SAM riboswitch aptamer (S box leader): a 117-nucleotide RNA sequence from Tenacibaculum sp. SG-28. The family is grouped with related families in Rfam's "SAM clan". Rfam's curators write: The SAM riboswitch is found upstream of a number of genes which code for proteins involved in methionine or cysteine biosynthesis in Gram-positive bacteria. The family's consensus secondary structure is taken from published work. The organism belongs to Tenacibaculum, within Bacteria.
RNA sequence: AUGUUAUCAAGAAAGGUGGAGGGAUUAGACCCUGUGAAACCUUAGCAACCCUUUGCAAUUGCAAAGAAGGUGCUAAAUUCUACCCAAGUACAUAUAUUACUUUAGGAUAGAUAACGA
Numbered sequence: 001a002u003g004u005u006a007u008c009a010a011g012a013a014a015g016g017u018g019g020a021g022g023g024a025u026u027a028g029a030c031c032c033u034g035u036g037a038a039a040c041c042u043u044a045g046c047a048a049c050c051c052u053u054u055g056c057a058a059u060u061g062c063a064a065a066g067a068a069g070g071u072g073c074u075a076a077a078u079u080c081u082a083c084c085c086a087a088g089u090a091c092a093u094a095u096a097u098u099a100c101u102u103u104a105g106g107a108u109a110g111a112u113a114a115c116g117a
Base pairs, nucleotide, nucleotide: 002116003115004114005113006112007111008110013043014042015041016040017039021032022031023030026082027081028080029079044074045073046072047071049070050069051066052065053064054063078109083106084105086103087102088101
Dot-bracket structure: .(((((((....(((((...(((..[[[[)))......)))))((((.((((((........))))..))))))...(]]]]((.(((............))).))..)))))))).